Shown here is a 102-nucleotide sequence from Bacillus sp. 7884-1, a member of the family "SAM riboswitch aptamer (S box leader)". Pairs were carried over by alignment from the consensus structure, which is taken from published work. About the family: The SAM riboswitch is found upstream of a number of genes which code for proteins involved in methionine or cysteine biosynthesis in Gram-positive bacteria. The SAM riboswitch acts at the level of transcription termination control. The predicted structure consists of a complex stem-loop region followed by a single stem loop terminator region. An alternative and mutually exclusive form involves bases in the 3' segment of helix 1 with those in the 5' region of helix 5 to form a structure termed the anti-terminator form. This entry represents the conserved core of the complex structure involving helices 1-4. The family has 457 seed sequences and 9,625 matches in Rfam 15.1. Taxonomically the source falls in Bacillus (Bacteria, Bacillota, Bacilli, Caryophanales).
[Rfam]
RNA sequence: AUCUUAUCAAGAGUGGCUGAGGGACUGGUCCUGUGAAGCCCGGCAACCUGCUGUGCAAGGUGCUAAUUCCAGCAAAAUGAUCUUCAUUUUGGGAGAUAAGGC
Numbered sequence: 001a002u003c004u005u006a007u008c009a010a011g012a013g014u015g016g017c018u019g020a021g022g023g024a025c026u027g028g029u030c031c032u033g034u035g036a037a038g039c040c041c042g043g044c045a046a047c048c049u050g051c052u053g054u055g056c057a058a059g060g061u062g063c064u065a066a067u068u069c070c071a072g073c074a075a076a077a078u079g080a081u082c083u084u085c086a087u088u089u090u091g092g093g094a095g096a097u098a099a100g101g102c
Stems, first nucleotide, its partner, number of pairs: 002101007013041001015040003021031003025072004042064004047060002049057003068094001073091006